Rfam assigns this 85-nucleotide sequence from Sutcliffiella horikoshii to the family "Group II catalytic intron D1-D4-1". The sequence is in the family's curated seed alignment. Lineage of the source: Bacteria > Bacillati > Bacilli > Bacillaceae > Sutcliffiella. Rfam's curators write: Group II introns are found in rRNA, tRNA and mRNA of organelles in fungi, plants and protists, and also in mRNA in bacteria.
RNA sequence: UAACCUUGCAUAAGAGUGCAAGCUGAACGGUCAGAAGUCAGCAGAAGCCAUAGUACCCGCUUGGUCUACACAAGAGGGGAAGGGC
Numbered sequence: 001u002a003a004c005c006u007u008g009c010a011u012a013a014g015a016g017u018g019c020a021a022g023c024u025g026a027a028c029g030g031u032c033a034g035a036a037g038u039c040a041g042c043a044g045a046a047g048c049c050a051u052a053g054u055a056c057c058c059g060c061u062u063g064g065u066c067u068a069c070a071c072a073a074g075a076g077g078g079g080a081a082g083g084g085c
Stems, first nucleotide, its partner, number of pairs: 001025002005022007038045002047085003056078003060074002
Rfam 15.1 lists 2,508 matches to the family in 1,144 species. The base pairs follow the family's consensus structure.